[Rfam]
RNA sequence: GUGGAAGCUCCAUCUAUAAAUGGAUAAUACUUUUGUAUUUACUUAUAUGUACAUUAAGUUUUCAAGGUAGCAAUACCACCAAUAUCUUGGUCUUAGAACAAGAUAUUGGUGGUAUUGCUAC
Numbered sequence: 001g002u003g004g005a006a007g008c009u010c011c012a013u014c015u016a017u018a019a020a021u022g023g024a025u026a027a028u029a030c031u032u033u034u035g036u037a038u039u040u041a042c043u044u045a046u047a048u049g050u051a052c053a054u055u056a057a058g059u060u061u062u063c064a065a066g067g068u069a070g071c072a073a074u075a076c077c078a079c080c081a082a083u084a085u086c087u088u089g090g091u092c093u094u095a096g097a098a099c100a101a102g103a104u105a106u107u108g109g110u111g112g113u114a115u116u117g118c119u120a121c
Base pairs, nucleotide, nucleotide: 009024010023011022012021013020067121068120069119070118071117072116073115074114075113076112080108081107082106084104085103086102087101088100
The family of this 121-nucleotide sequence is "Plastid-psbA-1 3UTR RNA". It is annotated as a cis-regulatory element. Rfam describes the family as follows. Plastid psbA-1 is a non-coding RNA (ncRNA) present in plastids. It was identified in inverted repeat sequences in the 3 prime untranslate region (3UTR) of photosystem II quinone-binding protein (psbA). The literature on the family includes a 2023 paper in Plant Commun by Richter et al., "Retrograde signaling in plants: A critical review focusing on the GUN pathway and beyond". Its Rfam clan is "Plastid-psbA 3UTR RNA clan".